The family of this 95-nucleotide RNA sequence from Paenibacillus xylanivorans is "ylbH leader". The organism belongs to Paenibacillus, within Bacteria. On this family, see Barrick et al., Proc Natl Acad Sci U S A 2004: "New RNA motifs suggest an expanded scope for riboswitches in bacterial genetic control". Gene Ontology term of the family: regulation of gene expression. The pairing is the family consensus, mapped onto this sequence.
RNA sequence: AUAACAAAAAGAAGCCCUCUUUCGAGAGCUUCUUUUUCAUGGGAGAGGAGAAACCGGACGAAGAGCUUAUGGGGAAACGUAAGUCUUCUCCGCGG
Numbered sequence: 001a002u003a004a005c006a007a008a009a010a011g012a013a014g015c016c017c018u019c020u021u022u023c024g025a026g027a028g029c030u031u032c033u034u035u036u037u038c039a040u041g042g043g044a045g046a047g048g049a050g051a052a053a054c055c056g057g058a059c060g061a062a063g064a065g066c067u068u069a070u071g072g073g074g075a076a077a078c079g080u081a082a083g084u085c086u087u088c089u090c091c092g093c094g095g
Stems, first nucleotide, its partner, number of pairs: 011032005017026003033043003055092004060088004065084005